[Rfam]
RNA sequence: UAUGCUUCGCUAGCUCUGGGACUCGUCUCCUACGGCAGAGGUGAAUUGACGAGGUUGGGGUGUAUCGAAGGUUCGGUGGAUCUCCUCGCGGUUGGCUACAAUCGUGAGCGACCUGGCAAAUCUUGGGAACGAUUCCGGAGACAAUACAGGUUUGGUGGUCUGAC
Numbered sequence: 001u002a003u004g005c006u007u008c009g010c011u012a013g014c015u016c017u018g019g020g021a022c023u024c025g026u027c028u029c030c031u032a033c034g035g036c037a038g039a040g041g042u043g044a045a046u047u048g049a050c051g052a053g054g055u056u057g058g059g060g061u062g063u064a065u066c067g068a069a070g071g072u073u074c075g076g077u078g079g080a081u082c083u084c085c086u087c088g089c090g091g092u093u094g095g096c097u098a099c100a101a102u103c104g105u106g107a108g109c110g111a112c113c114u115g116g117c118a119a120a121u122c123u124u125g126g127g128a129a130c131g132a133u134u135c136c137g138g139a140g141a142c143a144a145u146a147c148a149g150g151u152u153u154g155g156u157g158g159u160c161u162g163a164c
Base pairs, nucleotide, nucleotide: 020047021046023044024043025042026041027040029038056088057087058086059085060084065076066075067074068073089104090103091102092101093100094099109154110152111151112150113149114148123138124137125136126135127134128133

Rfam assigns this 164-nucleotide sequence from Brockia lithotrophica to the family "glmS glucosamine-6-phosphate activated ribozyme aptamer".
The family's consensus secondary structure is taken from published work.
NCBI's taxonomy places the organism under Bacteria, Bacillati, Bacillota, Bacilli, Brockia.